[Rfam]
RNA sequence: AGCACCUUUAAUUUCAGUCCCGUGAGGCUGGCAAGGUGAACGAUGAAUAUGAACGGUCUAUCCGGAGCGCGCUGCGGCAGAUAAAUUCGGGUGAAGUAUACCCGCAUCCGGAGGCUGAGUUCUGUUCUUGUGCAUAUACCUUGCCUUAUCGGCAAGGUUUUUUUCGU
Dot-bracket structure: ..((((((.....((((((......)))))).))))))......(.(((.((((((.................................................................)))))).))).)(.(.((((((((.....)))))))).).).....
RNA: PyrR binding site
Organism: Paenibacillus naphthalenovorans